[Rfam]
RNA sequence: GGCCCCGUAGCUCAGCUGGAUAGAGCAGCACCCUCCUAAGGUGACGGUCGGGGGUUCAAAUCCUCCCGGGGUCG
Numbered sequence: 001g002g003c004c005c006c007g008u009a010g011c012u013c014a015g016c017u018g019g020a021u022a023g024a025g026c027a028g029c030a031c032c033c034u035c036c037u038a039a040g041g042u043g044a045c046g047g048u049c050g051g052g053g054g055u056u057c058a059a060a061u062c063c064u065c066c067c068g069g070g071g072u073c074g
Stems, first nucleotide, its partner, number of pairs: 001073007010026004029043004050066005

Overview
Rfam assigns this 74-nucleotide RNA from Malonomonas rubra to the family "tRNA". The family's RNA type in Rfam is transfer RNA. NCBI's taxonomy places the organism under Bacteria, Pseudomonadati, Thermodesulfobacteriota, Desulfuromonadia, Malonomonas rubra. A search with the family's covariance model found it, with a score of 59 bits.